This 118-nucleotide RNA from Desulforhabdus amnigena belongs to the Rfam family "Group II catalytic intron D1-D4-2".

RNA sequence: GAGGGCAGGCCCCUCGGAGCCGCCAUACAGGUGGAGGCUUCAAACCACCUUAAGCUGCUGUGGUCAAAAGCCAUGGUGGUGAGCGUUAAGGAAAAGGUGCAGCUUGACUGCAUCAGGU
Numbered sequence: 001g002a003g004g005g006c007a008g009g010c011c012c013c014u015c016g017g018a019g020c021c022g023c024c025a026u027a028c029a030g031g032u033g034g035a036g037g038c039u040u041c042a043a044a045c046c047a048c049c050u051u052a053a054g055c056u057g058c059u060g061u062g063g064u065c066a067a068a069a070g071c072c073a074u075g076g077u078g079g080u081g082a083g084c085g086u087u088a089a090g091g092a093a094a095a096g097g098u099g100c101a102g103c104u105u106g107a108c109u110g111c112a113u114c115a116g117g118u
Base pairs, nucleotide, nucleotide: 001015002014003013004012005011016041017040018039019038020037021036023034024033025032026031046117048091049090050089051088052087053086054080055079057077058076059075061073062072063071064070096114097113098112099111100110101109
Dot-bracket structure: (((((.....)))))((((((.((((....)))).))))))....(.((((((((.(((.((((.....)))).))).)).....))))))....((((((.......))))))..).